RNA: mir-9242 microRNA precursor family
RNA sequence: GGCCUCCCUCUGUGGGGUAAUUGAUCUGGGGACCCUGCCAUCAAUCACCCCACAGAGGGAGGCC
Numbered sequence: 001g002g003c004c005u006c007c008c009u010c011u012g013u014g015g016g017g018u019a020a021u022u023g024a025u026c027u028g029g030g031g032a033c034c035c036u037g038c039c040a041u042c043a044a045u046c047a048c049c050c051c052a053c054a055g056a057g058g059g060a061g062g063c064c
Stems, first nucleotide, its partner, number of pairs: 001064018020045006029036002